FMN riboswitch aptamer (RFN element): a 145-nucleotide RNA from Parvularcula bermudensis. The source organism's lineage runs through Bacteria, Pseudomonadota, Alphaproteobacteria, Parvularculales and Parvularcula bermudensis. Rfam describes the family as follows. The RFN element is a highly conserved domain that is found frequently in the 5'-untranslated regions of prokaryotic mRNAs that encode for flavin mononucleotide (FMN) biosynthesis and transport proteins.
RNA sequence: CAGAGCUUUCGGGGCGGGGUGAAAGUCCCCACCGGCGGUAUUGGCCCUUGGCCUGAGCCCGCGAGCGGCUUCCUUCUUUAGGGGGCGGCAUGAUCUGGUGAGAGUCCAGAGCCGACGGUGAUAGUCCGGAUGAGAGAAAGCGUGA
Numbered sequence: 001c002a003g004a005g006c007u008u009u010c011g012g013g014g015c016g017g018g019g020u021g022a023a024a025g026u027c028c029c030c031a032c033c034g035g036c037g038g039u040a041u042u043g044g045c046c047c048u049u050g051g052c053c054u055g056a057g058c059c060c061g062c063g064a065g066c067g068g069c070u071u072c073c074u075u076c077u078u079u080a081g082g083g084g085g086c087g088g089c090a091u092g093a094u095c096u097g098g099u100g101a102g103a104g105u106c107c108a109g110a111g112c113c114g115a116c117g118g119u120g121a122u123a124g125u126c127c128g129g130a131u132g133a134g135a136g137a138a139a140g141c142g143u144g145a
Stems, first nucleotide, its partner, number of pairs: 003143001005141006017029003031125002033114002035062004057112002094110005116128003